[Rfam]
RNA sequence: UUAGUUUAAAUCAUUGUGUGUUUAUACUUUGAAAAUUGAACCCACACAAAUUAGUGAGACAUACAUUGAUUUCAUCCAA
Numbered sequence: 001u002u003a004g005u006u007u008a009a010a011u012c013a014u015u016g017u018g019u020g021u022u023u024a025u026a027c028u029u030u031g032a033a034a035a036u037u038g039a040a041c042c043c044a045c046a047c048a049a050a051u052u053a054g055u056g057a058g059a060c061a062u063a064c065a066u067u068g069a070u071u072u073c074a075u076c077c078a079a
Stems, first nucleotide, its partner, number of pairs: 001079002004076001006074001008072006015065004022057003025053002028050004

This 79-nucleotide sequence from Medicago truncatula belongs to the Rfam family "MIR5269 microRNA precursor family". The family has 2 seed sequences and 389 matches in Rfam 15.1. A search with the family's covariance model found it, with a score of 69 bits. The source organism's lineage runs through Eukaryota, Tracheophyta, eudicotyledons, Gunneridae and Medicago. Its family is annotated with miRNA-mediated post-transcriptional gene silencing and RISC complex in the Gene Ontology.